[Rfam]
RNA sequence: CGCUUUGGCUGAAUUAGUGAUCGGCUAAAGCACAAUUUAAAUUCUAUUUUGGAGUUAUUAUGUCACUAAGCAAUCAAGAAAAAGCAGAAAUCGUAGCAAAAUUCGCACGUGCUGAA
Numbered sequence: 001c002g003c004u005u006u007g008g009c010u011g012a013a014u015u016a017g018u019g020a021u022c023g024g025c026u027a028a029a030g031c032a033c034a035a036u037u038u039a040a041a042u043u044c045u046a047u048u049u050u051g052g053a054g055u056u057a058u059u060a061u062g063u064c065a066c067u068a069a070g071c072a073a074u075c076a077a078g079a080a081a082a083a084g085c086a087g088a089a090a091u092c093g094u095a096g097c098a099a100a101a102u103u104c105g106c107a108c109g110u111g112c113u114g115a116a
Base pairs, nucleotide, nucleotide: 007026008025009024010023011022012021048070049069050068051067052066054064
The record is a 116-nucleotide RNA from Pseudoalteromonas sp. A25, which matches "Ribosomal S15 leader" in Rfam. By type it is a cis-regulatory leader. Rfam's curators write: The E. coli Ribosomal S15 gene 5' UTR can form two alternative structures. One that is a series of three hairpins, The other includes a pseudoknot. This structure causes translational regulation of the S15 protein. The alignment of this family contains only the final two hairpins which are conserved in other species, and also includes the complete region that forms the alternate structures. Its family is annotated with regulation of translation, ncRNA-mediated in the Gene Ontology. For this family Rfam cites "Pseudoknot and translational control in the expression of the S15 ribosomal protein" (Benard et al., Biochimie, 1996). The family is grouped with related families in Rfam's "Ribosomal Protein S15 Leader clan". Taxonomically the source falls in Pseudoalteromonas (Bacteria, Pseudomonadati, Pseudomonadota, Gammaproteobacteria).